Rfam assigns this 86-nucleotide RNA from Salix dunnii to the family "Small nucleolar RNA R11/Z151". Pairs were carried over by alignment from the consensus structure, which was predicted with PFOLD.

[Rfam]
RNA sequence: GGGCUAAUGAUGAUAACAUAAUUAUCUUAGCGGAUUUCAGUGAGAUUAUCAAGUCAAUGAUCUGAAUGUUACACACACUGAAGCCC
Numbered sequence: 001g002g003g004c005u006a007a008u009g010a011u012g013a014u015a016a017c018a019u020a021a022u023u024a025u026c027u028u029a030g031c032g033g034a035u036u037u038c039a040g041u042g043a044g045a046u047u048a049u050c051a052a053g054u055c056a057a058u059g060a061u062c063u064g065a066a067u068g069u070u071a072c073a074c075a076c077a078c079u080g081a082a083g084c085c086c
Base pairs, nucleotide, nucleotide: 001086002085003084004083005082
Gene Ontology terms of the family: nucleolus and RNA processing.